[Rfam]
RNA sequence: UAGAUGAGAACUAAAUGACACACACAUAUCGACACCUGUUCCAGGGUGCCCUUCGGCCAUUUUUGGCACGCGGGUUUGGAGCAGGGAUAUGUGGAGGACUAAC
Numbered sequence: 001u002a003g004a005u006g007a008g009a010a011c012u013a014a015a016u017g018a019c020a021c022a023c024a025c026a027u028a029u030c031g032a033c034a035c036c037u038g039u040u041c042c043a044g045g046g047u048g049c050c051c052u053u054c055g056g057c058c059a060u061u062u063u064u065g066g067c068a069c070g071c072g073g074g075u076u077u078g079g080a081g082c083a084g085g086g087a088u089a090u091g092u093g094g095a096g097g098a099c100u101a102a103c
Stems, first nucleotide, its partner, number of pairs: 023093008035085009048075004